[Rfam]
RNA sequence: UUCUAUGAAUCGCUUAAUUCUAGAUCCUAGAAGCGGGGGACCCAAUCAAGAUGUGGCUCAGCCACUAGGGGUGAAUCCAUAAUUUAUGGUAGGGUGACUCUUUCCACCCGAAUCCGACAGCUAACCUCGUCAGCGUUUAAAGAGAAGAAUG
Numbered sequence: 001u002u003c004u005a006u007g008a009a010u011c012g013c014u015u016a017a018u019u020c021u022a023g024a025u026c027c028u029a030g031a032a033g034c035g036g037g038g039g040a041c042c043c044a045a046u047c048a049a050g051a052u053g054u055g056g057c058u059c060a061g062c063c064a065c066u067a068g069g070g071g072u073g074a075a076u077c078c079a080u081a082a083u084u085u086a087u088g089g090u091a092g093g094g095u096g097a098c099u100c101u102u103u104c105c106a107c108c109c110g111a112a113u114c115c116g117a118c119a120g121c122u123a124a125c126c127u128c129g130u131c132a133g134c135g136u137u138u139a140a141a142g143a144g145a146a147g148a149a150u151g
Stems, first nucleotide, its partner, number of pairs: 011135004018032003033130006043068001069115003077089004092109004